[Rfam]
RNA sequence: UUCUUAUCAAGAGUAGGCGGAGGGACCAGCCCGAUGAAGCCCGGCAACCGGCGUGCGAACGCACGGUGCUAAUUCUUGCGGAUGCGCGUGCGGCAGCGGCGUGUCUGGGAGAUGAGAG
Numbered sequence: 001u002u003c004u005u006a007u008c009a010a011g012a013g014u015a016g017g018c019g020g021a022g023g024g025a026c027c028a029g030c031c032c033g034a035u036g037a038a039g040c041c042c043g044g045c046a047a048c049c050g051g052c053g054u055g056c057g058a059a060c061g062c063a064c065g066g067u068g069c070u071a072a073u074u075c076u077u078g079c080g081g082a083u084g085c086g087c088g089u090g091c092g093g094c095a096g097c098g099g100c101g102u103g104u105c106u107g108g109g110a111g112a113u114g115a116g117a118g
Stems, first nucleotide, its partner, number of pairs: 001118008013042001016041003022032003026078001028076002043070004048066002051062004074110001079107009